[Rfam]
RNA sequence: UCUUAAUAUGACUGUAAGUCGCUUUGGAUAAAAGCGUCUGCUAAAUGACAUAUU
Numbered sequence: 001u002c003u004u005a006a007u008a009u010g011a012c013u014g015u016a017a018g019u020c021g022c023u024u025u026g027g028a029u030a031a032a033a034g035c036g037u038c039u040g041c042u043a044a045a046u047g048a049c050a051u052a053u054u
Stems, first nucleotide, its partner, number of pairs: 013043001014041003020036006
Background: A member of the RNA family "UnaL2 LINE 3' element" from Coregonus sp. 'balchen', 54 nucleotides long. Its family is annotated with transposition, RNA-mediated in the Gene Ontology. It scores 72 bits against the family's covariance model. From the family's description: The eel long interspersed element (LINE) UnaL2 and its partner short interspersed element (SINE) share a conserved 3' tail containing a stem-loop that is critical for their retrotransposition. Presumably, the first step of retrotransposition is the recognition of their 3' tails by UnaL2-encoded reverse transcriptase. The solution structure of a 17-nucleotide RNA derived from the 3' tail of UnaL2 was determined by NMR. Rfam classes the family as a cis-regulatory element. The literature on the family includes a 2004 paper in RNA by Baba et al., "Solution structure of an RNA stem-loop derived from the 3' conserved region of eel LINE UnaL2".